[Rfam]
RNA sequence: UUGACAGAAGAGAGUGAGCACACAGAGGCAUAUUUGUAUAAAAUUAUACCAUUGCUUUUGCGUGCUCAUUUCUCUUUCUGUCAC
Numbered sequence: 001u002u003g004a005c006a007g008a009a010g011a012g013a014g015u016g017a018g019c020a021c022a023c024a025g026a027g028g029c030a031u032a033u034u035u036g037u038a039u040a041a042a043a044u045u046a047u048a049c050c051a052u053u054g055c056u057u058u059u060g061c062g063u064g065c066u067c068a069u070u071u072c073u074c075u076u077u078c079u080g081u082c083a084c
Stems, first nucleotide, its partner, number of pairs: 002083008010074003013070009023060003